[Rfam]
RNA sequence: UAUCUCUGGCUCCUCUGCAUUUAACCGAGAAAAUCUUUCGCCUUUUACUAAAGAUUUCCGUGCAAAGGUGCAUUUUAUGAGUAACAAGUAAUUUUUGGAAUCCCCUCGAAAGAGAGGGGU
Numbered sequence: 001u002a003u004c005u006c007u008g009g010c011u012c013c014u015c016u017g018c019a020u021u022u023a024a025c026c027g028a029g030a031a032a033a034u035c036u037u038u039c040g041c042c043u044u045u046u047a048c049u050a051a052a053g054a055u056u057u058c059c060g061u062g063c064a065a066a067g068g069u070g071c072a073u074u075u076u077a078u079g080a081g082u083a084a085c086a087a088g089u090a091a092u093u094u095u096u097g098g099a100a101u102c103c104c105c106u107c108g109a110a111a112g113a114g115a116g117g118g119g120u
Stems, first nucleotide, its partner, number of pairs: 004081003009071002012068003016064004031057008102119005
Dot-bracket structure: ...(((..((.(((.((((...........((((((((...........))))))))...)))).))).)).......)))....................(((((........))))).
A member of the RNA family "U5 spliceosomal RNA" from Ancylostoma ceylanicum, 120 nucleotides long.
From the family's description: U5 RNA is a component of both types of known spliceosome. The precise function of this molecule is unknown, though it is known that the 5' loop is required for splice site selection and p220 binding, and that both the 3' stem-loop and the Sm site are important for Sm protein binding and cap methylation.
Its family is annotated with U5 snRNP and spliceosomal tri-snRNP complex assembly in the Gene Ontology.
On this family, see Zwieb, Nucleic Acids Res 1997: "The uRNA database".
Lineage of the source: Eukaryota > Ecdysozoa > Rhabditina > Ancylostomatinae > Ancylostoma.